[Rfam]
RNA: c-di-GMP-I riboswitch aptamer
RNA sequence: UUACGAUAAGGGCAAACUUAUCGAAAGAUAAGGACGCAAAGCCAUGGGCCUAAGGUGAAUUAAUCACUAUGGUUGCCAGGUUACCGAA
Dot-bracket structure: ...........((...((((((....))))))...))..((((.((((((....((((.....))))...)))..)))))))......
Numbered sequence: 001u002u003a004c005g006a007u008a009a010g011g012g013c014a015a016a017c018u019u020a021u022c023g024a025a026a027g028a029u030a031a032g033g034a035c036g037c038a039a040a041g042c043c044a045u046g047g048g049c050c051u052a053a054g055g056u057g058a059a060u061u062a063a064u065c066a067c068u069a070u071g072g073u074u075g076c077c078a079g080g081u082u083a084c085c086g087a088a
Stems, first nucleotide, its partner, number of pairs: 012037002017032006040082004045078003048073003055067004